[Rfam]
RNA sequence: AGCUUAUUUCUAGAUGAAAAUGGGCACUGUCCCUCAUGGUGUCCAGAAAUUGUGAAUGUGGUUAACUGAGACGGGAGGCGCUUCCAUCACAGCAAGAUGACCGCAGGGGUGACCACGAGGCCAUAACAUCC
Numbered sequence: 001a002g003c004u005u006a007u008u009u010c011u012a013g014a015u016g017a018a019a020a021u022g023g024g025c026a027c028u029g030u031c032c033c034u035c036a037u038g039g040u041g042u043c044c045a046g047a048a049a050u051u052g053u054g055a056a057u058g059u060g061g062u063u064a065a066c067u068g069a070g071a072c073g074g075g076a077g078g079c080g081c082u083u084c085c086a087u088c089a090c091a092g093c094a095a096g097a098u099g100a101c102c103g104c105a106g107g108g109g110u111g112a113c114c115a116c117g118a119g120g121c122c123a124u125a126a127c128a129u130c131c
Stems, first nucleotide, its partner, number of pairs: 001062001003060001005058003021045007074122002085111004090106001
RNA: Small nucleolar RNA SNORA1
Organism: Canis lupus